A member of the RNA family "Small nucleolar RNA snR60/Z15/Z230/Z193/J17" from Oryzias sinensis, 82 nucleotides long. Clan: SNORD77 clan. The match comes from Rfam's covariance-model search (55 bits). Rfam classes the family as a C/D-box small nucleolar RNA. The organism belongs to Oryzias, within Eukaryota.

Nucleotides: 082
Base pairs, nucleotide, nucleotide: 004079005078006077007076
Number, partner (000 for none) and nucleotide at each position: 001000c002000u003000g004079a005078c006077a007076c008000a009000g010000u011000g012000a013000u014000g015000a016000c017000a018000g019000c020000a021000u022000a023000g024000u025000u026000c027000a028000g029000c030000a031000g032000a033000u034000u035000a036000c037000a038000c039000c040000g041000u042000g043000a044000a045000g046000a047000a048000c049000a050000c051000g052000a053000c054000u055000u056000g057000u058000c059000u060000u061000u062000c063000g064000c065000u066000c067000c068000u069000a070000g071000c072000u073000g074000a075000c076007g077006u078005g079004u080000c081000g082000g